[Rfam]
ALIL pseudoknot: a 129-nucleotide RNA sequence from Nocardioides sp. CF8.
Nucleotides: 129
Base pairs, nucleotide, nucleotide: 013029014028015027016026017025075129076128077127078126079125086124087123089121090120091119
Number, partner (000 for none) and nucleotide at each position: 001000g002000g003000c004000u005000u006000u007000c008000u009000u010000c011000g012000c013029g014028g015027c016026g017025g018000a019000g020000c021000u022000c023000g024000a025017c026016c027015g028014c029013c030000c031000c032000a033000a034000c035000c036000g037000g038000u039000a040000c041000u042000g043000a044000u045000c046000g047000a048000c049000u050000u051000c052000a053000u054000c055000g056000a057000g058000a059000a060000c061000c062000a063000c064000a065000a066000g067000g068000a069000c070000g071000a072000g073000u074000u075129c076128g077127g078126g079125g080000u081000c082000g083000a084000g085000c086124c087123g088000a089121u090120c091119u092000g093000c094000c095000g096000g097000g098000u099000g100000c101000u102000c103000a104000g105000c106000g107000a108000g109000c110000a111000c112000g113000g114000c115000g116000c117000c118000a119091a120090g121089a122000u123087c124086g125079c126078c127077c128076c129075g
Description:
The source organism's lineage runs through Bacteria, Actinomycetota, Actinomycetes, Propionibacteriales and Nocardioides. The base pairs follow the family's consensus structure, which is taken from published work. It scores 72 bits against the family's covariance model. The family has 26 seed sequences and 2,146 matches in Rfam 15.1.